[Rfam]
Nucleotides: 124
Stems, first nucleotide, its partner, number of pairs: 007055006015045002020042002022039001023036005056097007099119001101122001105117003
Number, partner (000 for none) and nucleotide at each position: 001000u002000u003000a004000a005000u006000g007055g008054g009053c010052g011051g012050c013000u014000a015045g016044g017000g018000u019000u020042c021041c022039g023036g024035u025034u026033u027032c028000g029000u030000c031000g032027g033026a034025a035024a036023u037000g038000u039022c040000u041021g042020g043000u044016c045015c046000a047000a048000g049000a050012g051011c052010u053009g054008c055007c056097g057096g058095u059094u060093c061092u062091g063000u064000c065000u066000g067000c068000c069000g070000u071000g072000g073000g074000u075000g076000a077000u078000u079000g080000c081000c082000g083000c084000g085000g086000u087000g088000u089000g090000u091062c092061a093060g094059a095058g096057c097056u098000c099119c100000a101122c102000g103000g104000a105117g106116g107115g108000a109000u110000a111000a112000a113000a114000g115107c116106c117105c118000g119099g120000g121000a122101g123000g124000a